The record is a 131-nucleotide sequence from Phyllostomus discolor, which matches "Small nucleolar RNA SNORA25" in Rfam. The family has 30 seed sequences and 1,129 matches in Rfam 15.1. The organism belongs to Phyllostomus, within Eukaryota. Its family is annotated with RNA processing and nucleolus in the Gene Ontology. The match comes from Rfam's covariance-model search (90 bits).

RNA sequence: AGACCAUUUCAAAGAGAGCUUGUGUGACCAAAACCAGGAAGGAGGUCUUAACGCUGCGACCUAAGGUUGAAGUUCUCCAUAAGAUGUAAUAGACACUUAAUAGUACUAUAUUUUCUUGUGCAGAUAUAAAA
Numbered sequence: 001a002g003a004c005c006a007u008u009u010c011a012a013a014g015a016g017a018g019c020u021u022g023u024g025u026g027a028c029c030a031a032a033a034c035c036a037g038g039a040a041g042g043a044g045g046u047c048u049u050a051a052c053g054c055u056g057c058g059a060c061c062u063a064a065g066g067u068u069g070a071a072g073u074u075c076u077c078c079a080u081a082a083g084a085u086g087u088a089a090u091a092g093a094c095a096c097u098u099a100a101u102a103g104u105a106c107u108a109u110a111u112u113u114u115c116u117u118g119u120g121c122a123g124a125u126a127u128a129a130a131a
Stems, first nucleotide, its partner, number of pairs: 002061001005058001007056001014049004019044003023041001026035001074124003078120001081117004089109004095104003